[Rfam]
The family of this 73-nucleotide sequence from Medicago truncatula is "MIR2629 microRNA precursor family". The match comes from Rfam's covariance-model search (67 bits).

RNA sequence: UGCCGAUAAAAUCCUCGGUAGUUAACUGCCGCCGGUUUUCUAAAAUUUCGGUAGUUAACUGCCAAGGGGACAU
Dot-bracket structure: ...........((.(.(((((((((((((((.................)))))))))))))))..).))....
Numbered sequence: 001u002g003c004c005g006a007u008a009a010a011a012u013c014c015u016c017g018g019u020a021g022u023u024a025a026c027u028g029c030c031g032c033c034g035g036u037u038u039u040c041u042a043a044a045a046u047u048u049c050g051g052u053a054g055u056u057a058a059c060u061g062c063c064a065a066g067g068g069g070a071c072a073u
Stems, first nucleotide, its partner, number of pairs: 012069002015066001017063015